[Rfam]
RNA sequence: AAAACAUGCAAAUUCAAUAGAUUGCAGUGCACUUGUAGGCCU
Numbered sequence: 001a002a003a004a005c006a007u008g009c010a011a012a013u014u015c016a017a018u019a020g021a022u023u024g025c026a027g028u029g030c031a032c033u034u035g036u037a038g039g040c041c042u
Stems, first nucleotide, its partner, number of pairs: 005029002007026005
RNA: ES036 (CssrF) sRNA
Organism: Auanema sp. JU1783